[Rfam]
A member of the RNA family "Nuclear RNase P" from Sylvietta virens, 313 nucleotides long.
By type it is a ribozyme.
Lineage of the source: Eukaryota > Craniata > Euteleostomi > Archosauria > Sylvietta.
It scores 150 bits against the family's covariance model.
RNA sequence: UCCGGGGGAAGCUCACUGCCGAGGCCAGCCACGGGGUGCGCGUCACCCGCGCCCCCGCCUCGGGGAAGGUCUGAGGGAAGGGCUGCCUGCGGCCCCAGCAGGGCCCCGCCCGCGACGGGCGGGCGAGCCACCAGCAAGGGGGGGCCCCGCGUGGGCCGGCCCGGGCAGGAGAAGCCGUGCGGGUCCCCCGCGGAUCCCGGCGGAUGCUCGUGGCCCCGCGGCGCUUUGAGACAGACUCGCGGCCGGCGCGCUGAGUCCAAUGGGUGAGGUGGGGCACCGCCCCAUAACCCAACUCAGACUACUCUCCCCCGGA
Numbered sequence: 001u002c003c004g005g006g007g008g009a010a011g012c013u014c015a016c017u018g019c020c021g022a023g024g025c026c027a028g029c030c031a032c033g034g035g036g037u038g039c040g041c042g043u044c045a046c047c048c049g050c051g052c053c054c055c056c057g058c059c060u061c062g063g064g065g066a067a068g069g070u071c072u073g074a075g076g077g078a079a080g081g082g083c084u085g086c087c088u089g090c091g092g093c094c095c096c097a098g099c100a101g102g103g104c105c106c107c108g109c110c111c112g113c114g115a116c117g118g119g120c121g122g123g124c125g126a127g128c129c130a131c132c133a134g135c136a137a138g139g140g141g142g143g144g145c146c147c148c149g150c151g152u153g154g155g156c157c158g159g160c161c162c163g164g165g166c167a168g169g170a171g172a173a174g175c176c177g178u179g180c181g182g183g184u185c186c187c188c189c190g191c192g193g194a195u196c197c198c199g200g201c202g203g204a205u206g207c208u209c210g211u212g213g214c215c216c217c218g219c220g221g222c223g224c225u226u227u228g229a230g231a232c233a234g235a236c237u238c239g240c241g242g243c244c245g246g247c248g249c250g251c252u253g254a255g256u257c258c259a260a261u262g263g264g265u266g267a268g269g270u271g272g273g274g275c276a277c278c279g280c281c282c283c284a285u286a287a288c289c290c291a292a293c294u295c296a297g298a299c300u301a302c303u304c305u306c307c308c309c310c311g312g313a
Base pairs, nucleotide, nucleotide: 001313002312003311004310007307008306009305012268013267014266015265016264017263020062021061022060023059024058034048035047036046037045038044071297072296073295074294075293081244082243083242084241091105092104093103094102095101106122107121108120109119110118111117123240124239125238126237127236129234143225144224145223269285270284271283272282273281274280275279